[Rfam]
RNA sequence: GGUCAAUGAUGUUAUGGUAUGUACUAGCUGGAAGCUAGCUUGAUAUGAUAUCUAAAAUUACACUGAGACCUU
Numbered sequence: 001g002g003u004c005a006a007u008g009a010u011g012u013u014a015u016g017g018u019a020u021g022u023a024c025u026a027g028c029u030g031g032a033a034g035c036u037a038g039c040u041u042g043a044u045a046u047g048a049u050a051u052c053u054a055a056a057a058u059u060a061c062a063c064u065g066a067g068a069c070c071u072u
Stems, first nucleotide, its partner, number of pairs: 001070004
RNA: Small nucleolar RNA SNORD45